[Rfam]
RNA sequence: GGUUUCUAUUGGUGCAAAUUCAAUCACCUCAAUUUAAAAUGAGAAAAACUUUCCCAUUGGUAUCAAACGAUUAUCCAUUAAGCGGGGAAAAUCCUAUU
Numbered sequence: 001g002g003u004u005u006c007u008a009u010u011g012g013u014g015c016a017a018a019u020u021c022a023a024u025c026a027c028c029u030c031a032a033u034u035u036a037a038a039a040u041g042a043g044a045a046a047a048a049c050u051u052u053c054c055c056a057u058u059g060g061u062a063u064c065a066a067a068c069g070a071u072u073a074u075c076c077a078u079u080a081a082g083c084g085g086g087g088a089a090a091a092u093c094c095u096a097u098u
Stems, first nucleotide, its partner, number of pairs: 009023004052087004056078002059075004
Background: This 98-nucleotide RNA from Hydrocera triflora belongs to the Rfam family "Plastid-rps12 3UTR RNA". Taxonomically the source falls in Hydrocera (Eukaryota, Embryophyta, eudicotyledons, Ericales). It is annotated as a cis-regulatory element. The family's consensus secondary structure was predicted with LocARNA. Plastid rpl20 is a non-coding RNA (ncRNA) recognised in plastids. The literature on the family includes a 2023 paper in Plant Commun by Richter et al., "Retrograde signaling in plants: A critical review focusing on the GUN pathway and beyond".